[Rfam]
RNA sequence: GAUGGUUCUUGGGUGACGCAUCCCGGAAUCAGGCUUCCUCCUUUCUGGUUCCCGGUGCGUCAACCGGGAACCACA
Numbered sequence: 001g002a003u004g005g006u007u008c009u010u011g012g013g014u015g016a017c018g019c020a021u022c023c024c025g026g027a028a029u030c031a032g033g034c035u036u037c038c039u040c041c042u043u044u045c046u047g048g049u050u051c052c053c054g055g056u057g058c059g060u061c062a063a064c065c066g067g068g069a070a071c072c073a074c075a
Stems, first nucleotide, its partner, number of pairs: 003073001005071008014062004019057002022055002025052009